Rfam assigns this 113-nucleotide RNA sequence from Papio anubis to the family "Y RNA". The literature on the family includes a 2000 paper in Nucleic Acids Res by Teunissen et al., "Conserved features of Y RNAs: a comparison of experimentally derived secondary structures".

RNA sequence: GGCUGGUCUGAAGGCAGUGAGUUAUCGCAAUUGAUUGUUUACAGUCAGCUACAGAUGGAACACCUCGUUCUACUCUUUCCCCCCUUCUCACUGCUGCACUUGAAUUGUCUUUA
Numbered sequence: 001g002g003c004u005g006g007u008c009u010g011a012a013g014g015c016a017g018u019g020a021g022u023u024a025u026c027g028c029a030a031u032u033g034a035u036u037g038u039u040u041a042c043a044g045u046c047a048g049c050u051a052c053a054g055a056u057g058g059a060a061c062a063c064c065u066c067g068u069u070c071u072a073c074u075c076u077u078u079c080c081c082c083c084c085u086u087c088u089c090a091c092u093g094c095u096g097c098a099c100u101u102g103a104a105u106u107g108u109c110u111u112u113a
Stems, first nucleotide, its partner, number of pairs: 001109003005105001007103002010101002014097002016092006044074001047071002